[Rfam]
The family of this 116-nucleotide sequence from Camelina sativa is "Plastid-psbA-1 3UTR RNA".
By type it is a cis-regulatory element.
It is one of the family's seed sequences.
NCBI's taxonomy places the organism under Eukaryota, Tracheophyta, Mesangiospermae, malvids, Camelina.

RNA sequence: GUUGAGGCUCCAUCUACAAAUGGAUAAUUCGUUAGUGUUAGUCUAGAUCUAGUUUAGUAAAAAACGAGCAAUAUAAGCCUUUUUUUUAAUUUAAAGAAGGCUCAUAUUGCUCGUUU
Number, nucleotide and partner (000 for none) at each position: 001g000002u000003u000004g000005a000006g000007g000008c000009u024010c023011c022012a021013u020014c000015u000016a000017c000018a000019a000020a013021u012022g011023g010024a009025u000026a000027a000028u000029u000030c000031g000032u000033u000034a000035g000036u000037g000038u000039u000040a000041g000042u000043c000044u000045a000046g000047a000048u000049c000050u000051a000052g000053u000054u000055u000056a000057g000058u000059a000060a000061a000062a116063a115064a114065c113066g112067a111068g110069c109070a108071a107072u106073a105074u104075a000076a000077g000078c000079c000080u000081u100082u000083u098084u097085u096086u095087u094088a000089a000090u000091u000092u000093a000094a087095a086096g085097a084098a083099g000100g081101c000102u000103c000104a074105u073106a072107u071108u070109g069110c068111u067112c066113g065114u064115u063116u062